[Rfam]
RNA sequence: UCUUCAUGUCCCACACUCUCUCGCCGGUCCGAGCGGCGAGAGAGUACGUGAAAUGAAGAGA
Numbered sequence: 001u002c003u004u005c006a007u008g009u010c011c012c013a014c015a016c017u018c019u020c021u022c023g024c025c026g027g028u029c030c031g032a033g034c035g036g037c038g039a040g041a042g043a044g045u046a047c048g049u050g051a052a053a054u055g056a057a058g059a060g061a
Stems, first nucleotide, its partner, number of pairs: 001059007010050001012048001015045003019041004
Rfam assigns this 61-nucleotide sequence from Pristionchus pacificus to the family "mir-8364 microRNA precursor family".